Annotation:
mir-30 microRNA precursor family: a 79-nucleotide RNA sequence from Mola mola.
RNA sequence: GAGGGUGCUGUAAACAUCCUUGACUGGAAGCUGGGGUUGAAACAGCGAAGGCUUUCAGUCGGAUGUUUGCAGCAUCUCA
Numbered sequence: 001g002a003g004g005g006u007g008c009u010g011u012a013a014a015c016a017u018c019c020u021u022g023a024c025u026g027g028a029a030g031c032u033g034g035g036g037u038u039g040a041a042a043c044a045g046c047g048a049a050g051g052c053u054u055u056c057a058g059u060c061g062g063a064u065g066u067u068u069g070c071a072g073c074a075u076c077u078c079a
Base pairs, nucleotide, nucleotide: 003077004076005075006074008072009071010070011069012068013067014066015065016064017063018062019061023059024058025057026056027055028054029053030052031051032050
The organism belongs to Mola, within Eukaryota. On this family, see Lagos-Quintana et al., Science 2001: "Identification of novel genes coding for small expressed RNAs". The family's consensus secondary structure was predicted with PFOLD. Rfam's curators write: This family consists of the mammalian microRNA (miRNA) precursor mir-30a. It scores 68 bits against the family's covariance model.